[Rfam]
RNA sequence: UAGGUAAUAUCUCUUGGAGAAUUACACUAUCAUUUUUAGUAAAAACAUAAAAUUAAUAAUCUGCCUUGAUCAUGUGAGUGACAGGGACGGAAGA
Numbered sequence: 001u002a003g004g005u006a007a008u009a010u011c012u013c014u015u016g017g018a019g020a021a022u023u024a025c026a027c028u029a030u031c032a033u034u035u036u037u038a039g040u041a042a043a044a045a046c047a048u049a050a051a052a053u054u055a056a057u058a059a060u061c062u063g064c065c066u067u068g069a070u071c072a073u074g075u076g077a078g079u080g081a082c083a084g085g086g087a088c089g090g091a092a093g094a
Stems, first nucleotide, its partner, number of pairs: 001029003004025005010020002061090003064086005070081003
The family of this 94-nucleotide sequence from Savagea serpentis is "pan motif".
Pairs were carried over by alignment from the consensus structure, which is taken from published work.
The family's RNA type in Rfam is cis-regulatory element.
A search with the family's covariance model found it, with a score of 70 bits.